[Rfam]
RNA: Plant small nucleolar RNA R71
Organism: Striga hermonthica
RNA sequence: AAAUUGUGAUGUGGACAUUGUCUCUGUAAGUCCUUGAAGUGUUCCCACGCCUCGUGGAGUGGUUCAUUAGGUUGUUGGGCGAAUGAGACAAUUUAUGACCGGAGCU
Numbered sequence: 001a002a003a004u005u006g007u008g009a010u011g012u013g014g015a016c017a018u019u020g021u022c023u024c025u026g027u028a029a030g031u032c033c034u035u036g037a038a039g040u041g042u043u044c045c046c047a048c049g050c051c052u053c054g055u056g057g058a059g060u061g062g063u064u065c066a067u068u069a070g071g072u073u074g075u076u077g078g079g080c081g082a083a084u085g086a087g088a089c090a091a092u093u094u095a096u097g098a099c100c101g102g103a104g105c106u
Base pairs, nucleotide, nucleotide: 001106004103005101006100058073060071
Dot-bracket structure: (..(((...................................................(.(..........).)..........................)).)..)